[Rfam]
A member of the RNA family "SAM riboswitch aptamer (S box leader)" from Nocardioides lianchengensis, 143 nucleotides long. Gene Ontology term of the family: regulation of gene expression. Taxonomically the source falls in Nocardioides (Bacteria, Actinomycetota, Actinomycetes, Propionibacteriales).
RNA sequence: AGCUCAUCAAGAGGGACUGAGGGAACGGCCCAGUGAAGUCCCGGCAACCGCCACGAGCCUCCGCCUCCCGGACUUCGGGAUCGGACGUGGAGACGGUGCCAAUUCCGCCCGGACCGCGACGGUCGCGCCGGGGAAGAUGAGGA
Numbered sequence: 001a002g003c004u005c006a007u008c009a010a011g012a013g014g015g016a017c018u019g020a021g022g023g024a025a026c027g028g029c030c031c032a033g034u035g036a037a038g039u040c041c042c043g044g045c046a047a048c049c050g051c052c053a054c055g056a057g058c059c060u061c062c063g064c065c066u067c068c069c070g071g072a073c074u075u076c077g078g079g080a081u082c083g084g085a086c087g088u089g090g091a092g093a094c095g096g097u098g099c100c101a102a103u104u105c106c107g108c109c110c111g112g113a114c115c116g117c118g119a120c121g122g123u124c125g126c127g128c129c130g131g132g133g134a135a136g137a138u139g140a141g142g143a
Stems, first nucleotide, its partner, number of pairs: 003141006013042005021031003026107003043100004048096002104135001108132005